[Rfam]
RNA sequence: GCAAUGACAAUAAACUAAACUAAACUACUCCGGAGGCUGAGGCUGGCGGAUCGCUUGAGCUCAGGAGUUCUGGGCUGCAGUGGGCUAUGCCGAUCAGGGGUCCACACUAAGUUCGGCAUCAAUACGGUGAUCCACAGGGAGCUGAGGGCCACCAGGUUGCCCAAGGAGGGGUGAACCAGCCCAGGUCGGAAACGGAGCAGGUCAAAACUCCUGUGCCAAUCAGUAGUGCGAUAGUGCCUGUGAAUAGGUACUGCAGCAUAGCCUGAGCAAGACAGCGAGACCCAGACUCUU
Numbered sequence: 001g002c003a004a005u006g007a008c009a010a011u012a013a014a015c016u017a018a019a020c021u022a023a024a025c026u027a028c029u030c031c032g033g034a035g036g037c038u039g040a041g042g043c044u045g046g047c048g049g050a051u052c053g054c055u056u057g058a059g060c061u062c063a064g065g066a067g068u069u070c071u072g073g074g075c076u077g078c079a080g081u082g083g084g085c086u087a088u089g090c091c092g093a094u095c096a097g098g099g100g101u102c103c104a105c106a107c108u109a110a111g112u113u114c115g116g117c118a119u120c121a122a123u124a125c126g127g128u129g130a131u132c133c134a135c136a137g138g139g140a141g142c143u144g145a146g147g148g149c150c151a152c153c154a155g156g157u158u159g160c161c162c163a164a165g166g167a168g169g170g171g172u173g174a175a176c177c178a179g180c181c182c183a184g185g186u187c188g189g190a191a192a193c194g195g196a197g198c199a200g201g202u203c204a205a206a207a208c209u210c211c212u213g214u215g216c217c218a219a220u221c222a223g224u225a226g227u228g229c230g231a232u233a234g235u236g237c238c239u240g241u242g243a244a245u246a247g248g249u250a251c252u253g254c255a256g257c258a259u260a261g262c263c264u265g266a267g268c269a270a271g272a273c274a275g276c277g278a279g280a281c282c283c284a285g286a287c288u289c290u291u
Stems, first nucleotide, its partner, number of pairs: 015033002039289003043285004051278005059268007070261003074257009085247004090242001095240004100235002102230001105228005111221001113219001115217005120159004126153004131148003135144003160166002167212006179202003186195003
Shown here is a 291-nucleotide sequence from Naja naja, a member of the family "Metazoan signal recognition particle RNA". The organism belongs to Naja, within Eukaryota. Rfam's curators write: The signal recognition particle (SRP) is a universally conserved ribonucleoprotein. It is involved in the co-translational targeting of proteins to membranes. The family is grouped with related families in Rfam's "SRP clan". The match comes from Rfam's covariance-model search (200 bits).